The record is a 49-nucleotide RNA sequence, which matches "eL15-Euryarchaeota ribosomal protein leader" in Rfam.
By type it is a cis-regulatory leader.
The family's consensus secondary structure is taken from published work.
[Rfam]
RNA sequence: CGGGAUAGUAUCCCGAAAGGAAUGUAGCUUAUCCAAGCUGAACCUUGAG
Numbered sequence: 001c002g003g004g005a006u007a008g009u010a011u012c013c014c015g016a017a018a019g020g021a022a023u024g025u026a027g028c029u030u031a032u033c034c035a036a037g038c039u040g041a042a043c044c045u046u047g048a049g
Stems, first nucleotide, its partner, number of pairs: 001015005018045003026039005